[Rfam]
RNA sequence: CUCUUAUCCAGAGAGGUGGAGGGACAGGCCCUAUGAAACCUCGGCAGCAGAUUCUUAAUGAACACUGUGCCAAUUCCUGCAACGCAAGUUGUAAAGAUGAGAC
Dot-bracket structure: .(((((((....(((((...(((.[[[[)))......)))))((((.(((.((......)).)..))))))...(]]]]((((....))))...)))))))).
Numbered sequence: 001c002u003c004u005u006a007u008c009c010a011g012a013g014a015g016g017u018g019g020a021g022g023g024a025c026a027g028g029c030c031c032u033a034u035g036a037a038a039c040c041u042c043g044g045c046a047g048c049a050g051a052u053u054c055u056u057a058a059u060g061a062a063c064a065c066u067g068u069g070c071c072a073a074u075u076c077c078u079g080c081a082a083c084g085c086a087a088g089u090u091g092u093a094a095a096g097a098u099g100a101g102a103c
Stems, first nucleotide, its partner, number of pairs: 002102007013042005021031003025079004043071004048067002050063001052061002075095001080091004

SAM riboswitch aptamer (S box leader): a 103-nucleotide RNA sequence from Macrococcoides caseolyticum. Pairs were carried over by alignment from the consensus structure, which is taken from published work. The SAM riboswitch is found upstream of a number of genes which code for proteins involved in methionine or cysteine biosynthesis in Gram-positive bacteria. NCBI's taxonomy places the organism under Bacteria, Bacillati, Bacilli, Caryophanales, Macrococcoides caseolyticum.